[Rfam]
RNA: Vault RNA
Organism: Cimex lectularius
RNA sequence: GGGUCCGCGGUAGCCGAGUGGUUAAGGCGUCAGACUCUCGGCUAGUAGAUCCCGCGGUCGUGGGUUCGAUCCCCACCGUCGCUUCUGGACUUUUUC
Numbered sequence: 001g002g003g004u005c006c007g008c009g010g011u012a013g014c015c016g017a018g019u020g021g022u023u024a025a026g027g028c029g030u031c032a033g034a035c036u037c038u039c040g041g042c043u044a045g046u047a048g049a050u051c052c053c054g055c056g057g058u059c060g061u062g063g064g065u066u067c068g069a070u071c072c073c074c075a076c077c078g079u080c081g082c083u084u085c086u087g088g089a090c091u092u093u094u095u096c
Base pairs, nucleotide, nucleotide: 002091003090004089005088006087007086013080015078016077018076019075020074021073026070028068029067